[Rfam]
RNA sequence: GAUCGGGAAAGGAGGUGGUCCAGGAGUGCAUGAUCCUCGGACGCGAGAGGUGACUGUCCGCUAGUCGCCGCACCUGUUCCAGGUGCACCCGGACGGACUGCUGUUCGUUCUCGAGGCCGCGCGGCGGCCAGCGAGUCCCAGGCAGUCACCGCAGCCCGUGGGCGCCGCGAUCUCGUCCAUCGCGGCACGGCUCCACCAGGAGCCCGGCCCACGGGCUGUUCCCU
Number, nucleotide and partner (000 for none) at each position: 001g000002a000003u000004c000005g000006g000007g000008a000009a000010a000011g000012g000013a000014g058015g057016u056017g055018g054019u053020c000021c000022a000023g000024g000025a000026g000027u000028g000029c000030a000031u000032g000033a000034u000035c000036c000037u000038c000039g000040g000041a000042c000043g000044c000045g000046a000047g000048a000049g000050g000051u000052g000053a019054c018055u017056g016057u015058c014059c133060g132061c131062u130063a000064g128065u127066c000067g125068c124069c123070g122071c000072a000073c000074c000075u000076g000077u000078u000079c000080c000081a000082g000083g000084u000085g000086c000087a000088c000089c000090c000091g000092g000093a000094c000095g000096g000097a000098c000099u000100g000101c000102u000103g000104u000105u000106c000107g000108u000109u000110c000111u000112c000113g000114a000115g000116g000117c000118c000119g000120c000121g000122c070123g069124g068125c067126g000127g065128c064129c000130a062131g061132c060133g059134a000135g000136u000137c000138c000139c000140a000141g000142g000143c000144a000145g000146u000147c000148a000149c000150c000151g000152c218153a217154g216155c215156c214157c213158g212159u211160g210161g209162g208163c207164g000165c000166c184167g183168c182169g181170a180171u179172c000173u000174c000175g000176u000177c000178c000179a171180u170181c169182g168183c167184g166185g000186c000187a000188c000189g000190g000191c000192u000193c000194c000195a000196c000197c000198a000199g000200g000201a000202g000203c000204c000205c000206g000207g163208c162209c161210c160211a159212c158213g157214g156215g155216c154217u153218g152219u000220u000221c000222c000223c000224u000
Background: A member of the RNA family "Actinobacteria sRNA Ms_IGR-5" from Cellulomonas fimi, 224 nucleotides long. The source organism's lineage runs through Bacteria, Bacillati, Actinomycetota, Micrococcales and Cellulomonas. Pairs were carried over by alignment from the consensus structure. By type it is a small RNA.